[Rfam]
RNA sequence: ACCGAGACUUAGAGUCACAUCUAGGCAUUGCCUGUUGUCGUGGUGUGCUAAAGUCCUCGAAAAGUAACAGCUAACUCUAUUCACUGGCUGGUCAUCUUGUGAUCCACUCAGUCACCGGGUUAGGAAUAAAA
Numbered sequence: 001a002c003c004g005a006g007a008c009u010u011a012g013a014g015u016c017a018c019a020u021c022u023a024g025g026c027a028u029u030g031c032c033u034g035u036u037g038u039c040g041u042g043g044u045g046u047g048c049u050a051a052a053g054u055c056c057u058c059g060a061a062a063a064g065u066a067a068c069a070g071c072u073a074a075c076u077c078u079a080u081u082c083a084c085u086g087g088c089u090g091g092u093c094a095u096c097u098u099g100u101g102a103u104c105c106a107c108u109c110a111g112u113c114a115c116c117g118g119g120u121u122a123g124g125a126a127u128a129a130a131a
Base pairs, nucleotide, nucleotide: 003059004058005057006056007054008053009052013049014048016047017046018045019044020043021042024039025038026037027036071123072122073121074120075119076118077117083112084111085110086109087108089106090105091104092102093101
RNA: Small nucleolar RNA SNORA3/SNORA45 family